[Rfam]
The record is a 248-nucleotide sequence from Penicillium atrosanguineum, which matches "Small nucleolar RNA snR191" in Rfam. Gene Ontology terms of the family: nucleolus and RNA processing. Its Rfam clan is "SNORA74 clan". Pairs were carried over by alignment from the consensus structure, which was predicted with WAR. Lineage of the source: Eukaryota > Ascomycota > saccharomyceta > Eurotiomycetes > Penicillium. The literature on the family includes a 2003 paper in RNA by Badis et al., "A snoRNA that guides the two most conserved pseudouridine modifications within rRNA confers a growth advantage in yeast".
RNA sequence: UUCCAUCGCUAAGUCAAGGCUUCUUCCUACGGCUUUACGUCGUCUUGUUUCUCCAUGGAGAUUUGUCUGUUACAGCUUUGGUAGAUUAACAGUGUCCCGCACCGAAUCUCUUUCUGAGGCUAGGUUGACUGGUCUUCGUCUUGAAGACCGGUCGCAAGGGUCAUAUGUGUUUUGUUUUUGAGUUGAGUCCUGCCUCUGCCUUUUUCGGUGGCUCAGUGGUAGGACUCUUAGUAACAUCCCACACAUUC
Numbered sequence: 001u002u003c004c005a006u007c008g009c010u011a012a013g014u015c016a017a018g019g020c021u022u023c024u025u026c027c028u029a030c031g032g033c034u035u036u037a038c039g040u041c042g043u044c045u046u047g048u049u050u051c052u053c054c055a056u057g058g059a060g061a062u063u064u065g066u067c068u069g070u071u072a073c074a075g076c077u078u079u080g081g082u083a084g085a086u087u088a089a090c091a092g093u094g095u096c097c098c099g100c101a102c103c104g105a106a107u108c109u110c111u112u113u114c115u116g117a118g119g120c121u122a123g124g125u126u127g128a129c130u131g132g133u134c135u136u137c138g139u140c141u142u143g144a145a146g147a148c149c150g151g152u153c154g155c156a157a158g159g160g161u162c163a164u165a166u167g168u169g170u171u172u173u174g175u176u177u178u179u180g181a182g183u184u185g186a187g188u189c190c191u192g193c194c195u196c197u198g199c200c201u202u203u204u205u206c207g208g209u210g211g212c213u214c215a216g217u218g219g220u221a222g223g224a225c226u227c228u229u230a231g232u233a234a235c236a237u238c239c240c241a242c243a244c245a246u247u248c
Stems, first nucleotide, its partner, number of pairs: 003081003017068004022061005029043005092164003096160002101125003105121001107119004127153012167242003173236003185227004191221004196211004